Notes:
A member of the RNA family "t44 RNA" from Sulfurivirga caldicuralii, 90 nucleotides long. Lineage of the source: Bacteria > Gammaproteobacteria > Thiotrichales > Piscirickettsiaceae > Sulfurivirga. Pairs were carried over by alignment from the consensus structure, which was predicted with LocARNA. Rfam describes the family as follows. This family consists of a number of bacterial RNA genes of between 135 and 170 bases in length. The t44 gene has been identified in several species of enteric bacteria but homologs have also been identified in Pseudomonas and Coxiella species. It scores 61 bits against the family's covariance model.
RNA sequence: UUUAGCAAACGCAAACGACUCACAUUCGCCGUCACAUGAAUGGGGUGCCCGACGCGUCGGGUUCAUUCAUGGGGCGAAUGGCGGUUUAAC
Numbered sequence: 001u002u003u004a005g006c007a008a009a010c011g012c013a014a015a016c017g018a019c020u021c022a023c024a025u026u027c028g029c030c031g032u033c034a035c036a037u038g039a040a041u042g043g044g045g046u047g048c049c050c051g052a053c054g055c056g057u058c059g060g061g062u063u064c065a066u067u068c069a070u071g072g073g074g075c076g077a078a079u080g081g082c083g084g085u086u087u088a089a090c
Base pairs, nucleotide, nucleotide: 023080024079025078026077027076028075029074030073035071036070037069038068039067040066041065042064043063047062048061049060050059051058